[Rfam]
Overview
Shown here is a 90-nucleotide RNA sequence from Lactuca sativa, a member of the family "Small nucleolar RNA snoR26". The match comes from Rfam's covariance-model search (72 bits). The base pairs follow the family's consensus structure, which was predicted with WAR. The source organism's lineage runs through Eukaryota, Euphyllophyta, eudicotyledons, Cichorieae and Lactuca. The family has 8 seed sequences and 611 matches in Rfam 15.1.
RNA sequence: UUAGCAUCAAUGAUGAUAAUCAGACUUCGUCAUCCUUGCACUUUGAUUUAUAAUGAAGAAAACAACGGGGAAAGUAUUUCAGAGAUGCUU
Numbered sequence: 001u002u003a004g005c006a007u008c009a010a011u012g013a014u015g016a017u018a019a020u021c022a023g024a025c026u027u028c029g030u031c032a033u034c035c036u037u038g039c040a041c042u043u044u045g046a047u048u049u050a051u052a053a054u055g056a057a058g059a060a061a062a063c064a065a066c067g068g069g070g071a072a073a074g075u076a077u078u079u080c081a082g083a084g085a086u087g088c089u090u
Stems, first nucleotide, its partner, number of pairs: 003089006